[Rfam]
Shown here is a 116-nucleotide RNA, a member of the family "EGFOA RNA". The base pairs follow the family's consensus structure, which is taken from published work.
RNA sequence: AGCUACCUCGAAUCCAUAAGAACCCCCGUCCUGAUGUGGCAACGAUGAGAACCUAAGUGAUAAGGUACUAGAUAACGGCAGACCGAGGCUAGUCCGCAACAGCGGAAAUCAUCGUA
Numbered sequence: 001a002g003c004u005a006c007c008u009c010g011a012a013u014c015c016a017u018a019a020g021a022a023c024c025c026c027c028g029u030c031c032u033g034a035u036g037u038g039g040c041a042a043c044g045a046u047g048a049g050a051a052c053c054u055a056a057g058u059g060a061u062a063a064g065g066u067a068c069u070a071g072a073u074a075a076c077g078g079c080a081g082a083c084c085g086a087g088g089c090u091a092g093u094c095c096g097c098a099a100c101a102g103c104g105g106a107a108a109u110c111a112u113c114g115u116a
Stems, first nucleotide, its partner, number of pairs: 006088005028083002031081003042115007051066004067093005